RNA sequence: UUCUGGAGAGUGGUGCAUUCGGCACCCGCCGACGGGAUAGCGAUCUCAGGCGAAAGGACAGAA
Numbered sequence: 001u002u003c004u005g006g007a008g009a010g011u012g013g014u015g016c017a018u019u020c021g022g023c024a025c026c027c028g029c030c031g032a033c034g035g036g037a038u039a040g041c042g043a044u045c046u047c048a049g050g051c052g053a054a055a056g057g058a059c060a061g062a063a
Stems, first nucleotide, its partner, number of pairs: 001063005012026004028051003031047002035045002